[Rfam]
RNA: wcaG RNA
RNA sequence: CGGAGUUUCUUGCUUCUCUCAAGAGCAAGUGGUGCGGAUGGGGUUUAUACUCCCGCCCAGUUUCUUGCUUCUGGUUAAAGAGCAAGUGGCGUGCAUGUAA
Numbered sequence: 001c002g003g004a005g006u007u008u009c010u011u012g013c014u015u016c017u018c019u020c021a022a023g024a025g026c027a028a029g030u031g032g033u034g035c036g037g038a039u040g041g042g043g044u045u046u047a048u049a050c051u052c053c054c055g056c057c058c059a060g061u062u063u064c065u066u067g068c069u070u071c072u073g074g075u076u077a078a079a080g081a082g083c084a085a086g087u088g089g090c091g092u093g094c095a096u097g098u099a100a
Stems, first nucleotide, its partner, number of pairs: 009029007039055005057074004064086006
Dot-bracket structure: ........(((((((.......))))))).........(((((.......))))).[[[[...((((((.]]]]......))))))..............